[Rfam]
RNA sequence: GUGAACUGAUAGUUUGAUAGGUGGAAUGAAGGGGUAACGCCCUGAAACGCCUAGCCUUGACAGACUAGCGUCGGUUGUAAAGACCGGGGUUAGAAGCUCUGUGACAAAGGUCGAGAGUAGCCGCAGGAGUUGCCAAAAACUCCCGAAAGCGCCCCAGAGGUGGGGUGUGCUGCCUAUAGACCGAGGCUCUAUAAA
Numbered sequence: 001g002u003g004a005a006c007u008g009a010u011a012g013u014u015u016g017a018u019a020g021g022u023g024g025a026a027u028g029a030a031g032g033g034g035u036a037a038c039g040c041c042c043u044g045a046a047a048c049g050c051c052u053a054g055c056c057u058u059g060a061c062a063g064a065c066u067a068g069c070g071u072c073g074g075u076u077g078u079a080a081a082g083a084c085c086g087g088g089g090u091u092a093g094a095a096g097c098u099c100u101g102u103g104a105c106a107a108a109g110g111u112c113g114a115g116a117g118u119a120g121c122c123g124c125a126g127g128a129g130u131u132g133c134c135a136a137a138a139a140c141u142c143c144c145g146a147a148a149g150c151g152c153c154c155c156a157g158a159g160g161u162g163g164g165g166u167g168u169g170c171u172g173c174c175u176a177u178a179g180a181c182c183g184a185g186g187c188u189c190u191a192u193a194a195a
Stems, first nucleotide, its partner, number of pairs: 018053006031043004054187004061101004065093005071087006109182004117173005122145002129141001149168008
Notes
Rfam assigns this 195-nucleotide sequence from Sellimonas intestinalis to the family "Group II catalytic intron D1-D4-5". Group II introns are found in rRNA, tRNA and mRNA of organelles in fungi, plants and protists, and also in mRNA in bacteria. Rfam 15.1 lists 720 matches to the family in 418 species. NCBI's taxonomy places the organism under Bacteria, Bacillati, Bacillota, Lachnospirales, Sellimonas.